Bacterial RNase P class A: a 355-nucleotide RNA sequence from Oxalicibacterium flavum.
The source organism's lineage runs through Bacteria, Pseudomonadota, Burkholderiales, Oxalobacteraceae and Oxalicibacterium.
A search with the family's covariance model found it, with a score of 229 bits.
RNA sequence: GAAGCAGUCCAAGACAACCGCUGGCCGUCAUUUCGGUGACGACGGGAGGAAGGUCCGGACUCCAUAGAGCAGGGUGACGGCUAACGGCCGUCCGCCGUGAGGCGAGGAACAGGGCCACAGAGACGAGUCUUUGGGACCGGGGAGGGCGAAAGCCGCUCCCUGCGUUACAAAGGGUGAAACGCGGUAACCUCCACCUGGAGCAAUUUCAAAUAGGCACGCGAUGAUGCUGCUCGCGGAGCGUGCGGGUAGAAAGCUUGAGCCGUGGAGCAAUUCACGGCCUAGAGGAAUGGUUGUCAUAGCGGCCCGGCUUGCCGGUCCGCCGUAACAGAAUCCGGCCUACCGGUCUGCUUCACCU
Numbered sequence: 001g002a003a004g005c006a007g008u009c010c011a012a013g014a015c016a017a018c019c020g021c022u023g024g025c026c027g028u029c030a031u032u033u034c035g036g037u038g039a040c041g042a043c044g045g046g047a048g049g050a051a052g053g054u055c056c057g058g059a060c061u062c063c064a065u066a067g068a069g070c071a072g073g074g075u076g077a078c079g080g081c082u083a084a085c086g087g088c089c090g091u092c093c094g095c096c097g098u099g100a101g102g103c104g105a106g107g108a109a110c111a112g113g114g115c116c117a118c119a120g121a122g123a124c125g126a127g128u129c130u131u132u133g134g135g136a137c138c139g140g141g142g143a144g145g146g147c148g149a150a151a152g153c154c155g156c157u158c159c160c161u162g163c164g165u166u167a168c169a170a171a172g173g174g175u176g177a178a179a180c181g182c183g184g185u186a187a188c189c190u191c192c193a194c195c196u197g198g199a200g201c202a203a204u205u206u207c208a209a210a211u212a213g214g215c216a217c218g219c220g221a222u223g224a225u226g227c228u229g230c231u232c233g234c235g236g237a238g239c240g241u242g243c244g245g246g247u248a249g250a251a252a253g254c255u256u257g258a259g260c261c262g263u264g265g266a267g268c269a270a271u272u273c274a275c276g277g278c279c280u281a282g283a284g285g286a287a288u289g290g291u292u293g294u295c296a297u298a299g300c301g302g303c304c305c306g307g308c309u310u311g312c313c314g315g316u317c318c319g320c321c322g323u324a325a326c327a328g329a330a331u332c333c334g335g336c337c338u339a340c341c342g343g344u345c346u347g348c349u350u351c352a353c354c355u
Stems, first nucleotide, its partner, number of pairs: 001351007009343002013295007021046002024043001026041004051338003055335005060200004067232004072196005077091005092106001093104004107191002112189002114185003129173002131169001204252004214243006225235003259278008